The family of this 96-nucleotide RNA from Echinops telfairi is "mir-210 microRNA precursor family". The base pairs follow the family's consensus structure, which was predicted with WAR. It is one of the family's seed sequences. Rfam links the family to the GO terms miRNA-mediated post-transcriptional gene silencing and RISC complex. The source organism's lineage runs through Eukaryota, Deuterostomia, Euteleostomi, Tenrecinae and Echinops. A reference for the family is Cai et al. (2005), "Kaposi's sarcoma-associated herpesvirus expresses an array of viral microRNAs in latently infected cells", Proc Natl Acad Sci U S A.
[Rfam]
RNA sequence: UCCAGGUGCAGGGCAGUCCCUGCCCACCGCACACUGCUCUGUGCCAGACCCAUUGUGCGUGUGACAGCUGCUGAUCUGUCCCUGGGUUGCACGAUC
Numbered sequence: 001u002c003c004a005g006g007u008g009c010a011g012g013g014c015a016g017u018c019c020c021u022g023c024c025c026a027c028c029g030c031a032c033a034c035u036g037c038u039c040u041g042u043g044c045c046a047g048a049c050c051c052a053u054u055g056u057g058c059g060u061g062u063g064a065c066a067g068c069u070g071c072u073g074a075u076c077u078g079u080c081c082c083u084g085g086g087u088u089g090c091a092c093g094a095u096c
Stems, first nucleotide, its partner, number of pairs: 005082002008079005015072003020067003024063001025061002028059006035052002